[Rfam]
RNA sequence: CGGGGUAUGGCGCAGUCUGGUAGCGCGCACCCUUGGGGUGGGUGAGGCCGUGGGUUCAAAUCCCGCUACUCCGA
Numbered sequence: 001c002g003g004g005g006u007a008u009g010g011c012g013c014a015g016u017c018u019g020g021u022a023g024c025g026c027g028c029a030c031c032c033u034u035g036g037g038g039u040g041g042g043u044g045a046g047g048c049c050g051u052g053g054g055u056u057c058a059a060a061u062c063c064c065g066c067u068a069c070u071c072c073g074a
Stems, first nucleotide, its partner, number of pairs: 001073007010026004028044005050066005
RNA: tRNA